RNA sequence: CACCCCGGUGACUCACUCAACCCGGGUGUGAUGUGAAUAUAUUAUCGUCACAACCUCCUUGAGUGAGCGACCAGGUGG
Numbered sequence: 001c002a003c004c005c006c007g008g009u010g011a012c013u014c015a016c017u018c019a020a021c022c023c024g025g026g027u028g029u030g031a032u033g034u035g036a037a038u039a040u041a042u043u044a045u046c047g048u049c050a051c052a053a054c055c056u057c058c059u060u061g062a063g064u065g066a067g068c069g070a071c072c073a074g075g076u077g078g
Base pairs, nucleotide, nucleotide: 009069010068012067013066014065015064016063017062018061019060020059024055025054027052028051029050030049031048032047033046
Record summary: mir-67 microRNA precursor family: a 78-nucleotide sequence from Agrilus planipennis. The match comes from Rfam's covariance-model search (63 bits). The family has 33 seed sequences and 196 matches in Rfam 15.1. NCBI's taxonomy places the organism under Eukaryota, Opisthokonta, Eumetazoa, Ecdysozoa, Agrilus.